RNA sequence: AAAUAAGUCAAGUAACUACUCUACAUUUCCGAUAUGGGAAAUUAGUUGCUUGACUUAAAGAAAGGAGUGAACAAAAGUACCGUUGGCUCACGGUAUGGCAUUGUAGAGAGAUGCCAUUAUGUACACUAAGCCAUAAAGGCUUGAGUGUAUGAGUAAAACCUAUAAAUAUUGUAGAUAAUUUUAGAUCUUUAUAGGUUUUACAGAGCUGAAACAUAGGGUG
Dot-bracket structure: ......((((((((((((........................)))))))))))).........................[[[[((((((]]]].(((((((..(....).)))))))...(((((((.(............).)))))))..((((((((..((...........................)))))))))).))))))............
malK-I RNA: a 220-nucleotide RNA from Thermoanaerobacter brockii. The family's RNA type in Rfam is cis-regulatory element. Taxonomically the source falls in Thermoanaerobacter brockii (Bacteria, Bacillati, Thermoanaerobacterales, Thermoanaerobacteraceae).